[Rfam]
RNA sequence: GAGUGACCGGUCCGCGCAAGGUUAACCGCCGUAAGGCGGGCAGCCGGAGCGUAAGCGAGUCCGAAGAGGGCGCGAGUGCGGAUCGAUCGACCCGAAACCGCGUGAUCUAGCCGGCGCCAGGCUGAAGUCCCCUUAAGCCGGGAUGGAGGGCCGCACCCGUGUCCGUUGAAAAGGGCUGGGACGAGCGGCGGCUAGGGGUGAAAUGCCAAUCGAACGCGGAGAUAGCUGGUU
Numbered sequence: 001g002a003g004u005g006a007c008c009g010g011u012c013c014g015c016g017c018a019a020g021g022u023u024a025a026c027c028g029c030c031g032u033a034a035g036g037c038g039g040g041c042a043g044c045c046g047g048a049g050c051g052u053a054a055g056c057g058a059g060u061c062c063g064a065a066g067a068g069g070g071c072g073c074g075a076g077u078g079c080g081g082a083u084c085g086a087u088c089g090a091c092c093c094g095a096a097a098c099c100g101c102g103u104g105a106u107c108u109a110g111c112c113g114g115c116g117c118c119a120g121g122c123u124g125a126a127g128u129c130c131c132c133u134u135a136a137g138c139c140g141g142g143a144u145g146g147a148g149g150g151c152c153g154c155a156c157c158c159g160u161g162u163c164c165g166u167u168g169a170a171a172a173g174g175g176c177u178g179g180g181a182c183g184a185g186c187g188g189c190g191g192c193u194a195g196g197g198g199u200g201a202a203a204u205g206c207c208a209a210u211c212g213a214a215c216g217c218g219g220a221g222a223u224a225g226c227u228g229g230u231u
Base pairs, nucleotide, nucleotide: 005088006087008085009084010083011082012081013080014079015078016077017076020045021044022043023042026039027038028037049056050055059071060070061069062068091229092228094226098219099218100217101216102215103214107195108194109193110192111191112190113189115187116186117185118183120152121151122150123149127144128143129142130141131140156180157179158178161176162175163174164173197207198206199205

Source information
Rfam assigns this 231-nucleotide part of an RNA from Sulfobacillus acidophilus to the family "Bacterial large subunit ribosomal RNA". The base pairs follow the family's consensus structure, which is taken from published work. Rfam's curators put it in the seed alignment. Rfam links the family to the GO terms structural constituent of ribosome and ribosome.